[Rfam]
A member of the RNA family "Bacillaceae-1 RNA" from Psychrobacillus insolitus, 67 nucleotides long. It scores 51 bits against the family's covariance model. It is annotated as a small RNA.

RNA sequence: GGAUGAGGAAGGUCUGUUAUUAACGCCACAUCCUGUGGCAUAACAGACAUGACCUGCUUCGCGCAGG
Numbered sequence: 001g002g003a004u005g006a007g008g009a010a011g012g013u014c015u016g017u018u019a020u021u022a023a024c025g026c027c028a029c030a031u032c033c034u035g036u037g038g039c040a041u042a043a044c045a046g047a048c049a050u051g052a053c054c055u056g057c058u059u060c061g062c063g064c065a066g067g
Base pairs, nucleotide, nucleotide: 012048013047014046015045016044017043025039026038027037028036029035053067054066055065056064057063